The family of this 166-nucleotide RNA sequence from Geococcyx californianus is "Small Cajal body specific RNA 1". scaRNAs are a specific class of small nuclear RNAs which localise to the Cajal bodies and guide the modification of RNA polymerase II transcribed spliceosomal RNAs U1, U2, U4, U5 and U12. ACA35 belong to the H/ACA box class of guide RNAs as it has the predicted hairpin-hinge-hairpin-tail structure, conserved H/ACA-box motifs and is found associated with GAR1. NCBI's taxonomy places the organism under Eukaryota, Teleostomi, Sauropsida, Otidimorphae, Geococcyx. The family has 29 seed sequences and 715 matches in Rfam 15.1. The family's consensus secondary structure was predicted with RNAalifold.

[Rfam]
RNA sequence: GAGCACUUGAUACUAACCGAGCCAUCUGUGCCUCAGGCCUUGCACAGGGGUCUGGGGUACACCCUGUGAUUGCUGGGUCUGAAAAGUGCAACAGUAACACAAGCCAUGAGAUGUUUAAGCUCAGUGUAUGAAGGAAAACACUGGGUUAUAACUCAGAGGCACAGAA
Dot-bracket structure: ..((((((.......(((.(((.((((((((((..(.(((......))).)..).))))))......))).))).))).....)))))).............(((..................((.(.(....).).)).((((((....)))))).)))......